Rfam assigns this 168-nucleotide RNA from Thiopseudomonas denitrificans to the family "FMN riboswitch aptamer (RFN element)". A search with the family's covariance model found it, with a score of 104 bits.

RNA sequence: AAACGUUCUCAGGGCGGGGUGCAAGUCCCCACCGGCGGUGAUGCCUGGUUUGUAUCAAUGAUGCAUGACAGGACAAGCCCGCGAGCGCUUGUGCCCCCGGGUACAAGGUCAGCAGAUCCGGUUUGACUCCGGAGCCGACGGUCAUAGUCCGGAUGAGAGAGGGCGGAA
Numbered sequence: 001a002a003a004c005g006u007u008c009u010c011a012g013g014g015c016g017g018g019g020u021g022c023a024a025g026u027c028c029c030c031a032c033c034g035g036c037g038g039u040g041a042u043g044c045c046u047g048g049u050u051u052g053u054a055u056c057a058a059u060g061a062u063g064c065a066u067g068a069c070a071g072g073a074c075a076a077g078c079c080c081g082c083g084a085g086c087g088c089u090u091g092u093g094c095c096c097c098c099g100g101g102u103a104c105a106a107g108g109u110c111a112g113c114a115g116a117u118c119c120g121g122u123u124u125g126a127c128u129c130c131g132g133a134g135c136c137g138a139c140g141g142u143c144a145u146a147g148u149c150c151g152g153a154u155g156a157g158a159g160a161g162g163g164c165g166g167a168a
Stems, first nucleotide, its partner, number of pairs: 004165007017029003031148002033137002035082004077135002085113002117133005139151003